Rfam assigns this 134-nucleotide RNA sequence from Listeria monocytogenes to the family "Listeria sRNA rli62". It is annotated as a cis-regulatory element.
RNA sequence: UACAAAAAUAAAUUUUAUAUUAAGGUCUGCACUUCACUUCUCGUUUAUAAUCUUAUGAUGACAUAGCAGGAGGUUGCUAUGUUGCCUGGCAGAGGCUUUGUAUCUGAUCGUUGGUCUUGAUGGGAGACGCAUCU
Numbered sequence: 001u002a003c004a005a006a007a008a009u010a011a012a013u014u015u016u017a018u019a020u021u022a023a024g025g026u027c028u029g030c031a032c033u034u035c036a037c038u039u040c041u042c043g044u045u046u047a048u049a050a051u052c053u054u055a056u057g058a059u060g061a062c063a064u065a066g067c068a069g070g071a072g073g074u075u076g077c078u079a080u081g082u083u084g085c086c087u088g089g090c091a092g093a094g095g096c097u098u099u100g101u102a103u104c105u106g107a108u109c110g111u112u113g114g115u116c117u118u119g120a121u122g123g124g125a126g127a128c129g130c131a132u133c134u
Stems, first nucleotide, its partner, number of pairs: 027092004035084002045058005061082008094118002101113002104110001119133004123128001
Lineage of the source: Bacteria > Caryophanales > Listeriaceae > Listeria > Listeria monocytogenes. For this family Rfam cites "The Listeria transcriptional landscape from saprophytism to virulence" (Toledo-Arana et al., Nature, 2009).